Shown here is a 102-nucleotide RNA sequence from Anaerostipes caccae, a member of the family "azaaromatic riboswitch aptamer (yjdF RNA)". The organism belongs to Anaerostipes caccae, within Bacteria.

RNA sequence: CAGCGCAAAGAUAAAAACACAGUCCCGGCCGGUAGUCCGGGCGCAGAGAUAAAAGCUGUCAGUAACCUGCCUCCUCGGUUGUCCAUUCUUUGCUGCCAAAAG
Numbered sequence: 001c002a003g004c005g006c007a008a009a010g011a012u013a014a015a016a017a018c019a020c021a022g023u024c025c026c027g028g029c030c031g032g033u034a035g036u037c038c039g040g041g042c043g044c045a046g047a048g049a050u051a052a053a054a055g056c057u058g059u060c061a062g063u064a065a066c067c068u069g070c071c072u073c074c075u076c077g078g079u080u081g082u083c084c085a086u087u088c089u090u091u092g093c094u095g096c097c098a099a100a101a102g
Stems, first nucleotide, its partner, number of pairs: 005093007022042002025040004043059004069079003